[Rfam]
RNA sequence: UCAUAUAUUUUGUUUCUAUUUGAUUGUUUUUAGCGAAAUCAUUUAAUCACAUGACAAGGUGUGUUUCCA
Numbered sequence: 001u002c003a004u005a006u007a008u009u010u011u012g013u014u015u016c017u018a019u020u021u022g023a024u025u026g027u028u029u030u031u032a033g034c035g036a037a038a039u040c041a042u043u044u045a046a047u048c049a050c051a052u053g054a055c056a057a058g059g060u061g062u063g064u065u066u067c068c069a
Stems, first nucleotide, its partner, number of pairs: 003064012015051001017049001035044003

The record is a 69-nucleotide sequence from Grimontia hollisae, which matches "RNA-OUT" in Rfam. The family's RNA type in Rfam is antisense RNA. Transposition of insertion sequence IS10 is regulated by an anti-sense RNA which inhibits transposase expression when IS10 is present in multiple copies per cell. The anti-sense RNA (RNA-OUT) consists of a stem domain topped by a flexibly paired loop; the 5' end of the target molecule, RNA-IN, is complementary to the top of the loop, and complementarity extends for 35 base-pairs down one side of RNA-OUT. This bacterial RNA is also found in the genomic sequence of eukaryotic organisms. This is probably due to vector contamination. Pairs were carried over by alignment from the consensus structure, which was predicted with PFOLD. For this family Rfam cites "Insertion sequence IS10 anti-sense pairing initiates by an interaction between the 5' end of the target RNA and a loop in the anti-sense RNA" (Kittle et al., J Mol Biol, 1989). A search with the family's covariance model found it, with a score of 50 bits.